The record is a 54-nucleotide RNA sequence from Bordetella hinzii, which matches "sul1 RNA" in Rfam. The family has 54 seed sequences and 519 matches in Rfam 15.1.
RNA sequence: GGUGGACCCGGCCGCGCCGGGUGGCUCGGCCGGGCGCCUAUCCCCCGGAAACUC
Numbered sequence: 001g002g003u004g005g006a007c008c009c010g011g012c013c014g015c016g017c018c019g020g021g022u023g024g025c026u027c028g029g030c031c032g033g034g035c036g037c038c039u040a041u042c043c044c045c046c047g048g049a050a051a052c053u054c
Stems, first nucleotide, its partner, number of pairs: 006022006030048005
The match comes from Rfam's covariance-model search (53 bits).